[Rfam]
A member of the RNA family "FMN riboswitch aptamer (RFN element)" from Pasteurella felis, 147 nucleotides long. The RFN element is a highly conserved domain that is found frequently in the 5'-untranslated regions of prokaryotic mRNAs that encode for flavin mononucleotide (FMN) biosynthesis and transport proteins. The match comes from Rfam's covariance-model search (119 bits). Lineage of the source: Bacteria > Pseudomonadota > Gammaproteobacteria > Pasteurellaceae > Pasteurella.
RNA sequence: CCUCGUUCUCAGGGCAGGGCGAAAUUCCCUACCGGUGGUAAAUGUGAUAACAACAUAAGCCCACGAGCGUUUGUGUACUACACAAAGUCAGCAGAUUUGGUGAAAAUCCAAAGCCGACAGUUAUAGUCUGGAUGAAAGAGAAUUAAC
Numbered sequence: 001c002c003u004c005g006u007u008c009u010c011a012g013g014g015c016a017g018g019g020c021g022a023a024a025u026u027c028c029c030u031a032c033c034g035g036u037g038g039u040a041a042a043u044g045u046g047a048u049a050a051c052a053a054c055a056u057a058a059g060c061c062c063a064c065g066a067g068c069g070u071u072u073g074u075g076u077a078c079u080a081c082a083c084a085a086a087g088u089c090a091g092c093a094g095a096u097u098u099g100g101u102g103a104a105a106a107u108c109c110a111a112a113g114c115c116g117a118c119a120g121u122u123a124u125a126g127u128c129u130g131g132a133u134g135a136a137a138g139a140g141a142a143u144u145a146a147c
Base pairs, nucleotide, nucleotide: 003145005143006142007141008140009139010138017029018028019027031127032126033116034115035064036063037062038061059114060113067092068091096112097111098110099109100108118130119129120128